[Rfam]
RNA sequence: AGGCCAGCUUAGCCUAGCGGUUACUUCGGAAAAUCUUUGCAGAUUCACCAAUUGCUUAAUGGCAGUUCGAUACUCCGCGGGCGCUGUCUGGCUUUCUU
Numbered sequence: 001a002g003g004c005c006a007g008c009u010u011a012g013c014c015u016a017g018c019g020g021u022u023a024c025u026u027c028g029g030a031a032a033a034u035c036u037u038u039g040c041a042g043a044u045u046c047a048c049c050a051a052u053u054g055c056u057u058a059a060u061g062g063c064a065g066u067u068c069g070a071u072a073c074u075c076c077g078c079g080g081g082c083g084c085u086g087u088c089u090g091g092c093u094u095u096c097u098u
Stems, first nucleotide, its partner, number of pairs: 002093006012082004017078004026070004

The record is a 98-nucleotide sequence from Podarcis muralis, which matches "Vault RNA" in Rfam. Rfam 15.1 lists 2,873 matches to the family in 431 species. From the family's description: This family of RNAs are found as part of the enigmatic vault ribonucleoprotein complex.